[Rfam]
RNA sequence: CUUGAUCGACCCCAGAAGGAGCGGCUGCUCGGGCGAACGCCCCUGGCCGUAGGUGGCCAGCAGCGCCUGCGCCUC
Numbered sequence: 001c002u003u004g005a006u007c008g009a010c011c012c013c014a015g016a017a018g019g020a021g022c023g024g025c026u027g028c029u030c031g032g033g034c035g036a037a038c039g040c041c042c043c044u045g046g047c048c049g050u051a052g053g054u055g056g057c058c059a060g061c062a063g064c065g066c067c068u069g070c071g072c073c074u075c
Base pairs, nucleotide, nucleotide: 014026015025032070038065039064043060044059045058047056048055049054
A member of the RNA family "ASpks TB sRNA" from Actinacidiphila glaucinigra, 75 nucleotides long. The base pairs follow the family's consensus structure, which is taken from published work. It scores 67 bits against the family's covariance model.